[Rfam]
RNA sequence: CUGGGGCUUCACGACUGGCGCAGGUGGGCCACCACCAGGGAGUGCCCCGGGAGACCGGGGAGAGCGCGCAUCGAACGCCUGGGUGCCCUCA
Numbered sequence: 001c002u003g004g005g006g007c008u009u010c011a012c013g014a015c016u017g018g019c020g021c022a023g024g025u026g027g028g029c030c031a032c033c034a035c036c037a038g039g040g041a042g043u044g045c046c047c048c049g050g051g052a053g054a055c056c057g058g059g060g061a062g063a064g065c066g067c068g069c070a071u072c073g074a075a076c077g078c079c080u081g082g083g084u085g086c087c088c089u090c091a
Stems, first nucleotide, its partner, number of pairs: 003048004010044003015039002017079004024035004068086005
The record is a 91-nucleotide RNA from Nocardioides sp. LS1, which matches "ZMP/ZTP riboswitch aptamer (pfl RNA motif)" in Rfam. NCBI's taxonomy places the organism under Bacteria, Bacillati, Actinomycetota, Propionibacteriales, Nocardioides. A search with the family's covariance model found it, with a score of 41 bits.